[Rfam]
RNA: U12 minor spliceosomal RNA
Organism: Phytophthora kernoviae
RNA sequence: GUGGCUUAAACUCAAUGAGUAAGGAAACUAACGCUCUACCUGACAAGUAGGGCUGCCUUUUGGGUCUAGUGAUCCAUGGGUUAUUAAUUUUGACGGAGUUGGAAUGGCCGUCAUCGAAGGAACUUGCUGGCUCGCUACUUUUGAGCUGGCAGGUGACAACAAUGGGGCCG
Numbered sequence: 001g002u003g004g005c006u007u008a009a010a011c012u013c014a015a016u017g018a019g020u021a022a023g024g025a026a027a028c029u030a031a032c033g034c035u036c037u038a039c040c041u042g043a044c045a046a047g048u049a050g051g052g053c054u055g056c057c058u059u060u061u062g063g064g065u066c067u068a069g070u071g072a073u074c075c076a077u078g079g080g081u082u083a084u085u086a087a088u089u090u091u092g093a094c095g096g097a098g099u100u101g102g103a104a105u106g107g108c109c110g111u112c113a114u115c116g117a118a119g120g121a122a123c124u125u126g127c128u129g130g131c132u133c134g135c136u137a138c139u140u141u142u143g144a145g146c147u148g149g150c151a152g153g154u155g156a157c158a159a160c161a162a163u164g165g166g167g168c169c170g
Stems, first nucleotide, its partner, number of pairs: 005023004033053007055081004105170005111165004116160001122154002125151010